Rfam assigns this 96-nucleotide RNA from Nyctereutes procyonoides to the family "mir-8813 microRNA precursor family".

RNA sequence: AAUAGGCCUGAGGCUCCCUGGCUGUCACUCUCUCCCAGCCCCUCCUGGCCUGCGGGGCACAGGCUGAGUCACAGUAAAGUCUGUGGGGUCCUGACC
Numbered sequence: 001a002a003u004a005g006g007c008c009u010g011a012g013g014c015u016c017c018c019u020g021g022c023u024g025u026c027a028c029u030c031u032c033u034c035c036c037a038g039c040c041c042c043u044c045c046u047g048g049c050c051u052g053c054g055g056g057g058c059a060c061a062g063g064c065u066g067a068g069u070c071a072c073a074g075u076a077a078a079g080u081c082u083g084u085g086g087g088g089u090c091c092u093g094a095c096c
Stems, first nucleotide, its partner, number of pairs: 003094001005090005011082005021075005027069004033063002038058005
Dot-bracket structure: ..(.(((((.(((((.....(((((.((((..((...(((((...........)))))...))..)))).)))))..)))))...)))))...)..
Its family is annotated with RISC complex and miRNA-mediated post-transcriptional gene silencing in the Gene Ontology.